The record is a 102-nucleotide RNA from Mangrovibacillus cuniculi, which matches "Purine riboswitch aptamer" in Rfam.
Its family is annotated with purine nucleobase biosynthetic process in the Gene Ontology.
[Rfam]
RNA sequence: AUUACAUUUGAACGAACACCUUAUAUAAAUGUGGAAAUAUGGUCCACAAGUCUCUACCUGGCUACCGUAAAUGGCUAGACUAUAAGGAAAGUUUAUUAGGUA
Numbered sequence: 001a002u003u004a005c006a007u008u009u010g011a012a013c014g015a016a017c018a019c020c021u022u023a024u025a026u027a028a029a030u031g032u033g034g035a036a037a038u039a040u041g042g043u044c045c046a047c048a049a050g051u052c053u054c055u056a057c058c059u060g061g062c063u064a065c066c067g068u069a070a071a072u073g074g075c076u077a078g079a080c081u082a083u084a085a086g087g088a089a090a091g092u093u094u095a096u097u098a099g100g101u102a
Stems, first nucleotide, its partner, number of pairs: 019087007030048006058078007